Notes:
The family of this 52-nucleotide sequence from Choloepus hoffmanni is "mir-1302 microRNA precursor family".
RNA sequence: UUUUUAGUAUAAGUAUGUCCCAUGCAAUAUUUGGGACAUACUUAUACUAAAA
Numbered sequence: 001u002u003u004u005u006a007g008u009a010u011a012a013g014u015a016u017g018u019c020c021c022a023u024g025c026a027a028u029a030u031u032u033g034g035g036a037c038a039u040a041c042u043u044a045u046a047c048u049a050a051a052a
Stems, first nucleotide, its partner, number of pairs: 006048007014040003018036004022031001

The literature on the family includes a 2008 paper in Genome Res by Morin et al., "Application of massively parallel sequencing to microRNA profiling and discovery in human embryonic stem cells". Gene Ontology terms of the family: RISC complex and miRNA-mediated post-transcriptional gene silencing.